[Rfam]
RNA: mir-148/mir-152 microRNA precursor family
Organism: Cyclopterus lumpus
RNA sequence: CCUGGUCUAAGUUCUGUGAUACACUCUGACUGUGAAUCUAUGCUAGUCAGUGCAUAACAGAACUUUGUCUCGGG
Numbered sequence: 001c002c003u004g005g006u007c008u009a010a011g012u013u014c015u016g017u018g019a020u021a022c023a024c025u026c027u028g029a030c031u032g033u034g035a036a037u038c039u040a041u042g043c044u045a046g047u048c049a050g051u052g053c054a055u056a057a058c059a060g061a062a063c064u065u066u067g068u069c070u071c072g073g074g
Stems, first nucleotide, its partner, number of pairs: 004070002007067001009065008022052004028048004